[Rfam]
RNA sequence: CUCUUAUCCAGAGAGGCUGAGGGACUGGCCCAAUGACGCCCGGCAACCCCGGAUAAAGAUCCGGAAGGUGCCAAUUCCUGUAGAAAUCCUUUGGGAUUUCUAGAAGAUAGGAG
Numbered sequence: 001c002u003c004u005u006a007u008c009c010a011g012a013g014a015g016g017c018u019g020a021g022g023g024a025c026u027g028g029c030c031c032a033a034u035g036a037c038g039c040c041c042g043g044c045a046a047c048c049c050c051g052g053a054u055a056a057a058g059a060u061c062c063g064g065a066a067g068g069u070g071c072c073a074a075u076u077c078c079u080g081u082a083g084a085a086a087u088c089c090u091u092u093g094g095g096a097u098u099u100c101u102a103g104a105a106g107a108u109a110g111g112a113g
Stems, first nucleotide, its partner, number of pairs: 001113008013041001015040003021031003025080001027078002042072004047068002049064004076105001081102008